[Rfam]
RNA sequence: GGCUGGAACAAUGGUAGGGGGUUAUCAGAACUUAUUAACAUUAGUGUCACUAAAGUUGGUAUUCAACCUCUCACUGCUAAAUUUGACUGGCUUUAA
Numbered sequence: 001g002g003c004u005g006g007a008a009c010a011a012u013g014g015u016a017g018g019g020g021g022u023u024a025u026c027a028g029a030a031c032u033u034a035u036u037a038a039c040a041u042u043a044g045u046g047u048c049a050c051u052a053a054a055g056u057u058g059g060u061a062u063u064c065a066a067c068c069u070c071u072c073a074c075u076g077c078u079a080a081a082u083u084u085g086a087c088u089g090g091c092u093u094u095a096a
Base pairs, nucleotide, nucleotide: 001092002091003090004089005088006087010084011083015079016075017074019072020071021070033061034060035059037057038056
Dot-bracket structure: ((((((...((...(((.(((...........(((.((.................)).)))........))).))...)...))..))))))....
The record is a 96-nucleotide RNA from Microcebus murinus, which matches "Y RNA" in Rfam. On this family, see Teunissen et al., Nucleic Acids Res 2000: "Conserved features of Y RNAs: a comparison of experimentally derived secondary structures". The base pairs follow the family's consensus structure, which is taken from published work.